[Rfam]
RNA: Small nucleolar RNA SNORA72
RNA sequence: CUGCAAAUAUUCUCACAUUCUGAUUUUGUAAUAGUUAGGACAAGCUAAACAUUUUGCUAUAUAAAAAUCAUACACAUGUCCACAGACCUAAUAGUUCUUUCCCCAGGUUUGGUUUUAUAAAUGCUGGUGAUAACC
Numbered sequence: 001c002u003g004c005a006a007a008u009a010u011u012c013u014c015a016c017a018u019u020c021u022g023a024u025u026u027u028g029u030a031a032u033a034g035u036u037a038g039g040a041c042a043a044g045c046u047a048a049a050c051a052u053u054u055u056g057c058u059a060u061a062u063a064a065a066a067a068u069c070a071u072a073c074a075c076a077u078g079u080c081c082a083c084a085g086a087c088c089u090a091a092u093a094g095u096u097c098u099u100u101c102c103c104c105a106g107g108u109u110u111g112g113u114u115u116u117a118u119a120a121a122u123g124c125u126g127g128u129g130a131u132a133a134c135c
Stems, first nucleotide, its partner, number of pairs: 003057003018040008067128004073123001083111007